[Rfam]
RNA sequence: GGAAUUCGAGCCGCGCACUCCUCCUCCCAGCGCGGGCUUGAUGGGACUGGCGAUCCUCCUCCUCCCAAGUCGCCAGUCGUUACAAAUGACGCCCACCGGACCUCCUCCCCCGGUGGGCGUUAUUU
Numbered sequence: 001g002g003a004a005u006u007c008g009a010g011c012c013g014c015g016c017a018c019u020c021c022u023c024c025u026c027c028c029a030g031c032g033c034g035g036g037c038u039u040g041a042u043g044g045g046a047c048u049g050g051c052g053a054u055c056c057u058c059c060u061c062c063u064c065c066c067a068a069g070u071c072g073c074c075a076g077u078c079g080u081u082a083c084a085a086a087u088g089a090c091g092c093c094c095a096c097c098g099g100a101c102c103u104c105c106u107c108c109c110c111c112g113g114u115g116g117g118c119g120u121u122a123u124u125u
Base pairs, nucleotide, nucleotide: 007040008039009038011035012034013033014032015031016030045078046077047076048075049074050073051072052071053070054069089120090119091118092117093116094115095114096113097112098111099110
RNA: Alphaproteobacterial ar14